[Rfam]
Rfam assigns this 103-nucleotide RNA sequence from Clostridium sp. HMP27 to the family "SAM riboswitch aptamer (S box leader)".
RNA sequence: CUCUUAUCAAGAGAGGUGGAGGGAAAGGGCCCUAUGAAACCCGGCAACCAAGUACUUUGUACCAAGGUGCCAAUUCCUGCAGGUUUGUUCUGCGAGAUAAGAG
Numbered sequence: 001c002u003c004u005u006a007u008c009a010a011g012a013g014a015g016g017u018g019g020a021g022g023g024a025a026a027g028g029g030c031c032c033u034a035u036g037a038a039a040c041c042c043g044g045c046a047a048c049c050a051a052g053u054a055c056u057u058u059g060u061a062c063c064a065a066g067g068u069g070c071c072a073a074u075u076c077c078u079g080c081a082g083g084u085u086u087g088u089u090c091u092g093c094g095a096g097a098u099a100a101g102a103g
Base pairs, nucleotide, nucleotide: 001103002102003101004100005099006098007097008096013042015041016040017039021032022031023030027078028077029076043071044070045069046068048067049066052062053061075095080092081091082090083089
The family's consensus secondary structure is taken from published work.